[Rfam]
RNA: ZMP/ZTP riboswitch aptamer (pfl RNA motif)
RNA sequence: GACGCGGGCCGUGACUGGCGCUGAGGUGGAGCACCACCGGGGAGCGGCCUGACACCGGUUGUCGAUGCCGCGCGCCUGGGCGACUCAU
Numbered sequence: 001g002a003c004g005c006g007g008g009c010c011g012u013g014a015c016u017g018g019c020g021c022u023g024a025g026g027u028g029g030a031g032c033a034c035c036a037c038c039g040g041g042g043a044g045c046g047g048c049c050u051g052a053c054a055c056c057g058g059u060u061g062u063c064g065a066u067g068c069c070g071c072g073c074g075c076c077u078g079g080g081c082g083a084c085u086c087a088u
Base pairs, nucleotide, nucleotide: 005051006050007049008048009047010046011045012044015041016040017076018075019074020073021072026037027036028035029034066082067081068080069079